Annotation: The family of this 84-nucleotide RNA sequence from Aotus nancymaae is "mir-548 microRNA precursor family". Rfam links the family to the GO terms miRNA-mediated post-transcriptional gene silencing and RISC complex. It scores 93 bits against the family's covariance model.
[Rfam]
RNA sequence: UAUUAGGUUGGUACAAAAGUAAUUGUGGCUUUCGCCAUUGAAAGUAAUGGCAAAAGCCACAAUUACUUUUGCACCAACAUAAUA
Numbered sequence: 001u002a003u004u005a006g007g008u009u010g011g012u013a014c015a016a017a018a019g020u021a022a023u024u025g026u027g028g029c030u031u032u033c034g035c036c037a038u039u040g041a042a043a044g045u046a047a048u049g050g051c052a053a054a055a056g057c058c059a060c061a062a063u064u065a066c067u068u069u070u071g072c073a074c075c076a077a078c079a080u081a082a083u084a
Stems, first nucleotide, its partner, number of pairs: 001084005007078006014071019034051007